[Rfam]
This 134-nucleotide sequence belongs to the Rfam family "LOOT RNA".

RNA sequence: GACCUAAACUCUAAAAAAUUUUAAUUUUUAGGGCAUGGUCGUAAAUCCUACGCAAAUAAACAAGGUCUUCUGAUCAGUACUUAUUUGCGUAGGUCUAUAGUCGAAAGAUUAUAGGAUAACUUGAAAGAGUUGUC
Number, nucleotide and partner (000 for none) at each position: 001g040002a039003c038004c037005u000006a000007a000008a000009c033010u032011c031012u030013a029014a028015a027016a026017a025018a000019u000020u000021u000022u000023a000024a000025u017026u016027u015028u014029u013030a012031g011032g010033g009034c000035a000036u000037g004038g003039u002040c001041g000042u000043a000044a000045a000046u000047c093048c092049u091050a090051c089052g088053c087054a086055a085056a084057u083058a000059a000060a000061c000062a000063a000064g075065g074066u073067c000068u000069u000070c000071u000072g000073a066074u065075c064076a000077g000078u000079a000080c000081u000082u000083a057084u056085u055086u054087g053088c052089g051090u050091a049092g048093g047094u000095c114096u113097a112098u111099a110100g109101u108102c107103g000104a000105a000106a000107g102108a101109u100110u099111a098112u097113a096114g095115g134116a133117u132118a131119a130120c129121u128122u127123g000124a000125a000126a000127g122128a121129g120130u119131u118132g117133u116134c115